[Rfam]
RNA sequence: UUCUUAUCAAGAGUGGCGGAGGGACAAGGCCCUGCGAAGCCCGGCAACCGAUCGCAGCAAUAUGCGCGAUGACAAUGGUGCCAAUUCCUUCAGGAUCCAGGCGGAUUCUGGCAGAUGAGAA
Numbered sequence: 001u002u003c004u005u006a007u008c009a010a011g012a013g014u015g016g017c018g019g020a021g022g023g024a025c026a027a028g029g030c031c032c033u034g035c036g037a038a039g040c041c042c043g044g045c046a047a048c049c050g051a052u053c054g055c056a057g058c059a060a061u062a063u064g065c066g067c068g069a070u071g072a073c074a075a076u077g078g079u080g081c082c083a084a085u086u087c088c089u090u091c092a093g094g095a096u097c098c099a100g101g102c103g104g105a106u107u108c109u110g111g112c113a114g115a116u117g118a119g120a121a
Stems, first nucleotide, its partner, number of pairs: 001121008013042001015041003021032003026090004043082004048078002052072002086113001091110006